[Rfam]
RNA sequence: GAAUAUACUGAGUGGCCAGAUUAUUAUGAUCUCUGAAUGCAUAAUAAUCUGGCUACUCAAUAUAUAU
Numbered sequence: 001g002a003a004u005a006u007a008c009u010g011a012g013u014g015g016c017c018a019g020a021u022u023a024u025u026a027u028g029a030u031c032u033c034u035g036a037a038u039g040c041a042u043a044a045u046a047a048u049c050u051g052g053c054u055a056c057u058c059a060a061u062a063u064a065u066a067u
Base pairs, nucleotide, nucleotide: 004064005063006062007061009059010058011057012056013055014054015053016052017051019049020048021047022046023045024044025043026042027041028040
Dot-bracket structure: ...((((.(((((((((.((((((((((...........)))))))))).))))))))).))))...

The record is a 67-nucleotide RNA from Pipistrellus kuhlii, which matches "mir-9256 microRNA precursor family" in Rfam. A search with the family's covariance model found it, with a score of 80 bits. Gene Ontology terms of the family: miRNA-mediated post-transcriptional gene silencing and RISC complex.